[Rfam]
RNA sequence: GUAAGAGUUCGGUAGGGGCGGAAACCCGGCACUGUCCCUUCCGUAAGAGGCCCCGGUUCGCAAGGACCGGGGCCUCACCUUUU
Numbered sequence: 001g002u003a004a005g006a007g008u009u010c011g012g013u014a015g016g017g018g019c020g021g022a023a024a025c026c027c028g029g030c031a032c033u034g035u036c037c038c039u040u041c042c043g044u045a046a047g048a049g050g051c052c053c054c055g056g057u058u059c060g061c062a063a064g065g066a067c068c069g070g071g072g073c074c075u076c077a078c079c080u081u082u083u
Stems, first nucleotide, its partner, number of pairs: 010043003014039005049074008058065002